[Rfam]
RNA sequence: CCGGACCUACGGUUCGGGCAGAUACCCGGCAAUGCCCGAACCGUCGAGGGGUCCCAGCGCAAGCUGGGACCCCAGACCGCUG
Numbered sequence: 001c002c003g004g005a006c007c008u009a010c011g012g013u014u015c016g017g018g019c020a021g022a023u024a025c026c027c028g029g030c031a032a033u034g035c036c037c038g039a040a041c042c043g044u045c046g047a048g049g050g051g052u053c054c055c056a057g058c059g060c061a062a063g064c065u066g067g068g069a070c071c072c073c074a075g076a077c078c079g080c081u082g
Stems, first nucleotide, its partner, number of pairs: 010043009048073008057064002
A member of the RNA family "Bradyrhizobiaceae sRNA BjrC68" from Rhodopseudomonas palustris, 82 nucleotides long.
The base pairs follow the family's consensus structure.
For this family Rfam cites "Small RNAs of the Bradyrhizobium/Rhodopseudomonas lineage and their analysis" (Madhugiri et al., RNA Biol, 2012).